The record is a 90-nucleotide sequence from Arachis hypogaea, which matches "Small nucleolar RNA Z161/Z228" in Rfam. The family's RNA type in Rfam is C/D-box small nucleolar RNA. For this family Rfam cites "The high diversity of snoRNAs in plants: identification and comparative study of 120 snoRNA genes from Oryza sativa" (Chen et al., Nucleic Acids Res, 2003).
RNA sequence: AAACCAAAUGAUGAAUUUGGAUUUAUAUUUUCUCACGACGGUCGUCUGAGAUUUCACUUUGAUGUAUAUAAUCCAAUGGUUCUGAUGGUU
Numbered sequence: 001a002a003a004c005c006a007a008a009u010g011a012u013g014a015a016u017u018u019g020g021a022u023u024u025a026u027a028u029u030u031u032c033u034c035a036c037g038a039c040g041g042u043c044g045u046c047u048g049a050g051a052u053u054u055c056a057c058u059u060u061g062a063u064g065u066a067u068a069u070a071a072u073c074c075a076a077u078g079g080u081u082c083u084g085a086u087g088g089u090u
Base pairs, nucleotide, nucleotide: 001090002089004087050059051058
The organism belongs to Arachis, within Eukaryota. Rfam links the family to the GO terms RNA processing and nucleolus.